Source information
mir-393 microRNA precursor family: a 129-nucleotide RNA sequence from Carya illinoinensis. The family has 27 seed sequences and 1,052 matches in Rfam 15.1. The pairing is the family consensus, mapped onto this sequence. The literature on the family includes a 2012 paper in J Plant Physiol by Kruszka et al., "Role of microRNAs and other sRNAs of plants in their changing environments".
RNA sequence: GAUGGAGAGUUCCAAAGGGAUCGCAUUGAUCUAAUGUUCAUCGAUGGCCAAAUCAUCAUGAGUCUAGGGUUUUGGUUUUGUUCAUUUCGCUCAAUCCUUGGAUCAUGCGAUCCCUUGGGAAGUUUCCAU
Dot-bracket structure: .(((((.(.((((.(((((((.((((.(((((...(............................................................)..))))))))).))))))).)))).).)))))